A member of the RNA family "Manganese Mn2+ riboswitch aptamer (yybP-ykoY)" from Fulvimonas soli, 174 nucleotides long. A reference for the family is Argaman et al. (2001), "Novel small RNA-encoding genes in the intergenic regions of Escherichia coli", Curr Biol. Rfam links the family to the GO term manganese ion binding. It scores 60 bits against the family's covariance model. About the family: This RNA was originally discovered in E. coli during a large scale screen and was named SraF. The family was later found to exist upstream of related families of protein genes in many bacteria, including the the yybP and ykoK genes in B. subtilis. The specific functions of these proteins are unknown, but this structured RNA element may be involved in their genetic regulation as a riboswitch.

RNA sequence: GCCGUUGUCAUCGGGGAGUAGCCAUCCUCGCUCCCGGGAAGCGCCGCUUCCAUCCGCGAGGAAUCCGCGUCAACAGACUUGGGGUUUCGCCCCAUGGCGCGGAUGGCCGGUCGCACUGCCCGGCGGUGCGCAGCGGUCCGGCGAGACCUUUGGCCACGACGUGCUCACCCGGCC
Numbered sequence: 001g002c003c004g005u006u007g008u009c010a011u012c013g014g015g016g017a018g019u020a021g022c023c024a025u026c027c028u029c030g031c032u033c034c035c036g037g038g039a040a041g042c043g044c045c046g047c048u049u050c051c052a053u054c055c056g057c058g059a060g061g062a063a064u065c066c067g068c069g070u071c072a073a074c075a076g077a078c079u080u081g082g083g084g085u086u087u088c089g090c091c092c093c094a095u096g097g098c099g100c101g102g103a104u105g106g107c108c109g110g111u112c113g114c115a116c117u118g119c120c121c122g123g124c125g126g127u128g129c130g131c132a133g134c135g136g137u138c139c140g141g142c143g144a145g146a147c148c149u150u151u152g153g154c155c156a157c158g159a160c161g162u163g164c165u166c167a168c169c170c171g172g173c174c
Stems, first nucleotide, its partner, number of pairs: 026061006063104010080094005105174006